The family of this 88-nucleotide RNA from Anaerobiospirillum thomasii is "t44 RNA". A reference for the family is Tjaden et al. (2002), "Transcriptome analysis of Escherichia coli using high-density oligonucleotide probe arrays", Nucleic Acids Res. The source organism's lineage runs through Bacteria, Gammaproteobacteria, Aeromonadales, Succinivibrionaceae and Anaerobiospirillum. The family's RNA type in Rfam is small RNA.

RNA sequence: UUAAUUUUUUUUCGAAAACACACACUGUUUAUUCACGCAGACUUUGGGUGCCGUUAAGGUUAAAGCUGCGAAACAGUGGAGGCUAAAC
Number, nucleotide and partner (000 for none) at each position: 001u000002u000003a000004a000005u000006u000007u000008u000009u000010u000011u000012u000013c000014g000015a000016a000017a000018a000019c000020a000021c000022a000023c078024a077025c076026u075027g074028u073029u072030u071031a000032u000033u000034c000035a000036c000037g069038c068039a067040g066041a000042c000043u063044u062045u000046g000047g000048g000049u000050g060051c059052c058053g000054u000055u000056a000057a000058g052059g051060u050061u000062a044063a043064a000065g000066c040067u039068g038069c037070g000071a030072a029073a028074c027075a026076g025077u024078g023079g000080a000081g000082g000083c000084u000085a000086a000087a000088c000